[Rfam]
RNA sequence: UCGACUGUACUUGCACAGGAUCACUGCUACAGUGAUUCCUCUUGCAUACAUGUCAUAACAUAGAGCUUCACAGCAUCUCUGAUGAUGUCGAUCUCUGCACUGAUAAGGAAUUUGCUGGAGCUUGCUCCCAGUUUGAUGAAAGCUAUCAGUGCAGUCUUCUGAAGAGAU
Numbered sequence: 001u002c003g004a005c006u007g008u009a010c011u012u013g014c015a016c017a018g019g020a021u022c023a024c025u026g027c028u029a030c031a032g033u034g035a036u037u038c039c040u041c042u043u044g045c046a047u048a049c050a051u052g053u054c055a056u057a058a059c060a061u062a063g064a065g066c067u068u069c070a071c072a073g074c075a076u077c078u079c080u081g082a083u084g085a086u087g088u089c090g091a092u093c094u095c096u097g098c099a100c101u102g103a104u105a106a107g108g109a110a111u112u113u114g115c116u117g118g119a120g121c122u123u124g125c126u127c128c129c130a131g132u133u134u135g136a137u138g139a140a141a142g143c144u145a146u147c148a149g150u151g152c153a154g155u156c157u158u159c160u161g162a163a164g165a166g167a168u
Stems, first nucleotide, its partner, number of pairs: 003039001006035001008034004017028002020025001045063001050061004076167005095154004100149006107128003131143004